The family of this 134-nucleotide RNA sequence from [Clostridium] polysaccharolyticum is "Group II catalytic intron D1-D4-4". From the family's description: Group II introns are found in rRNA, tRNA and mRNA of organelles in fungi, plants and protists, and also in mRNA in bacteria. It scores 78 bits against the family's covariance model. Pairs were carried over by alignment from the consensus structure.
RNA sequence: UUGCCAGUGAAAGUCUGGUCGGAGUAAUCACCAGUGAGCUCCGUAGCAAGCAUCCAGUGCUUUUGGGUGACCGAUUGUGCUGAAGCGAUGUAUGCCUAUGUGAAAUAGGUGCAAGUUAGUAGUCCGUAACAUUA
Numbered sequence: 001u002u003g004c005c006a007g008u009g010a011a012a013g014u015c016u017g018g019u020c021g022g023a024g025u026a027a028u029c030a031c032c033a034g035u036g037a038g039c040u041c042c043g044u045a046g047c048a049a050g051c052a053u054c055c056a057g058u059g060c061u062u063u064u065g066g067g068u069g070a071c072c073g074a075u076u077g078u079g080c081u082g083a084a085g086c087g088a089u090g091u092a093u094g095c096c097u098a099u100g101u102g103a104a105a106u107a108g109g110u111g112c113a114a115g116u117u118a119g120u121a122g123u124c125c126g127u128a129a130c131a132u133u134a
Stems, first nucleotide, its partner, number of pairs: 020043005050091005055082006064073001066071001094110006111127002